About this RNA: Bacteroidales small SRP: a 101-nucleotide RNA sequence from Sediminitomix flava. A reference for the family is Ryan et al. (2020), "A high-resolution transcriptome map identifies small RNA regulation of metabolism in the gut microbe Bacteroides thetaiotaomicron", Nat Commun. Gene Ontology terms of the family: SRP-dependent cotranslational protein targeting to membrane, signal sequence recognition and signal recognition particle, plasma membrane targeting. Lineage of the source: Bacteria > Pseudomonadati > Cytophagia > Cytophagales > Sediminitomix. A search with the family's covariance model found it, with a score of 58 bits.
RNA sequence: UGUACCCGCAAGCUGAUACGAUCAGCUCCUAUUAAAUCCCCCAGGUGCGGAAGCAAGCAAGGGUAGAUAGUUGAGCAGAUGCGUUAUCAGCUUGUUUUUUU
Numbered sequence: 001u002g003u004a005c006c007c008g009c010a011a012g013c014u015g016a017u018a019c020g021a022u023c024a025g026c027u028c029c030u031a032u033u034a035a036a037u038c039c040c041c042c043a044g045g046u047g048c049g050g051a052a053g054c055a056a057g058c059a060a061g062g063g064u065a066g067a068u069a070g071u072u073g074a075g076c077a078g079a080u081g082c083g084u085u086a087u088c089a090g091c092u093u094g095u096u097u098u099u100u101u
Base pairs, nucleotide, nucleotide: 008095009094010093011092012091013090014089015088016087017086018085019083020082021080022079
It is annotated as a non-coding RNA gene. The base pairs follow the family's consensus structure, which is taken from published work.